This 368-nucleotide RNA from Mycolicibacterium fallax belongs to the Rfam family "transfer-messenger RNA".
Rfam describes the family as follows. Bacterial tmRNA, also known as 10Sa RNA or SsrA, is named for its dual tRNA and mRNA-like properties. Its role is to liberate the mRNA from a stalled ribosome. To accomplish this part of the tmRNA is used as a reading frame that ends in a translation stop signal.
The base pairs follow the family's consensus structure, which is taken from published work.
Clan: tRNA clan.
RNA sequence: GGGGCUGAACGGUUUCGACUUCGCGCAUCGAAUCAAGGGAAGCGUGCCGGUGCAGGCAAGAGACCACCGUAAGCGUCGUUGCAACCAAUUAAGCGCCGAUUCCAAUCAGCGCGACUACGCUCUCGCUGCCUAAGCGAAGCUAGUCUGUCAGCCCGGGAAAGCCCUCGGCCCGGUUCCUGGCAUCAGCUAGAGGGAUGCACCGAAGAGUCCGGUCGCGGGACUCCUCGGGACAAACCACAGCGACUGGGAUCGUCAUCUCGGCUUGUUCACGUGACCGGGAGAUCCGAGUAGAGACAGGGUGAACUGCGCACGGAGAAGUCUUGAGGGAAUGCCGUAGGACCCGGGUUCGAUUCCCGGCAGCUCCACCG
Numbered sequence: 001g002g003g004g005c006u007g008a009a010c011g012g013u014u015u016c017g018a019c020u021u022c023g024c025g026c027a028u029c030g031a032a033u034c035a036a037g038g039g040a041a042g043c044g045u046g047c048c049g050g051u052g053c054a055g056g057c058a059a060g061a062g063a064c065c066a067c068c069g070u071a072a073g074c075g076u077c078g079u080u081g082c083a084a085c086c087a088a089u090u091a092a093g094c095g096c097c098g099a100u101u102c103c104a105a106u107c108a109g110c111g112c113g114a115c116u117a118c119g120c121u122c123u124c125g126c127u128g129c130c131u132a133a134g135c136g137a138a139g140c141u142a143g144u145c146u147g148u149c150a151g152c153c154c155g156g157g158a159a160a161g162c163c164c165u166c167g168g169c170c171c172g173g174u175u176c177c178u179g180g181c182a183u184c185a186g187c188u189a190g191a192g193g194g195a196u197g198c199a200c201c202g203a204a205g206a207g208u209c210c211g212g213u214c215g216c217g218g219g220a221c222u223c224c225u226c227g228g229g230a231c232a233a234a235c236c237a238c239a240g241c242g243a244c245u246g247g248g249a250u251c252g253u254c255a256u257c258u259c260g261g262c263u264u265g266u267u268c269a270c271g272u273g274a275c276c277g278g279g280a281g282a283u284c285c286g287a288g289u290a291g292a293g294a295c296a297g298g299g300u301g302a303a304c305u306g307c308g309c310a311c312g313g314a315g316a317a318g319u320c321u322u323g324a325g326g327g328a329a330u331g332c333c334g335u336a337g338g339a340c341c342c343g344g345g346u347u348c349g350a351u352u353c354c355c356g357g358c359a360g361c362u363c364c365a366c367c368g
Stems, first nucleotide, its partner, number of pairs: 001364007019337002022334002025332004033324006043312005048069005056082004122143002125140003129136001146182006153173005162194005200228004205223004211245006247285005253280002256277001260276002265304004272297001341357005